The record is a 74-nucleotide sequence from Ornithorhynchus anatinus, which matches "mir-885 microRNA precursor family" in Rfam. The match comes from Rfam's covariance-model search (67 bits).
RNA sequence: CCGUGCUCUUUCCACUGAGCCACGCUGCUUCUUAUAUUGGAGAAGCAGCGUGGCUCAGUGGAAAGAGCACGGGC
Number, nucleotide and partner (000 for none) at each position: 001c072002c071003g070004u000005g000006c067007u066008c065009u064010u000011u062012c061013c060014a059015c058016u057017g056018a055019g054020c053021c052022a000023c000024g000025c048026u047027g046028c045029u044030u043031c042032u041033u040034a000035u000036a000037u000038u000039g000040g033041a032042g031043a030044a029045g028046c027047a026048g025049c000050g000051u000052g021053g020054c019055u018056c017057a016058g015059u014060g013061g012062a011063a000064a009065g008066a007067g006068c000069a000070c003071g002072g001073g000074c000